[Rfam]
RNA sequence: UUGGCAUUAUGAUGAAUCUCAUAUCAAUUCUGAGAAUUUUUUUAUCUGACAGAAUUUAAACCUCCUACUCAUUCUGA
Numbered sequence: 001u002u003g004g005c006a007u008u009a010u011g012a013u014g015a016a017u018c019u020c021a022u023a024u025c026a027a028u029u030c031u032g033a034g035a036a037u038u039u040u041u042u043u044a045u046c047u048g049a050c051a052g053a054a055u056u057u058a059a060a061c062c063u064c065c066u067a068c069u070c071a072u073u074c075u076g077a
Stems, first nucleotide, its partner, number of pairs: 006072002009069001031052001033047003

Record summary
A member of the RNA family "Small nucleolar RNA Z105" from Zingiber officinale, 77 nucleotides long. Gene Ontology terms of the family: RNA processing and nucleolus. It is annotated as a C/D-box small nucleolar RNA.